Rfam assigns this 102-nucleotide sequence from Tsukamurella paurometabola to the family "Glycine riboswitch aptamer". The organism belongs to Tsukamurella paurometabola, within Bacteria. The match comes from Rfam's covariance-model search (65 bits). For this family Rfam cites "A glycine-dependent riboswitch that uses cooperative binding to control gene expression" (Mandal et al., Science, 2004).
RNA sequence: CAACACCGCGUGGGAGAGCCCAGCGGGCCGGUCGAGCCCGCAGGCGCCGAAGGAGCAACACCUCUCCGUCAAUCUCUCAGGCAACAGGACCAUGCGGGUUGG
Numbered sequence: 001c002a003a004c005a006c007c008g009c010g011u012g013g014g015a016g017a018g019c020c021c022a023g024c025g026g027g028c029c030g031g032u033c034g035a036g037c038c039c040g041c042a043g044g045c046g047c048c049g050a051a052g053g054a055g056c057a058a059c060a061c062c063u064c065u066c067c068g069u070c071a072a073u074c075u076c077u078c079a080g081g082c083a084a085c086a087g088g089a090c091c092a093u094g095c096g097g098g099u100u101g102g
Stems, first nucleotide, its partner, number of pairs: 006097008020044002023041006046082003049078002053076003060069002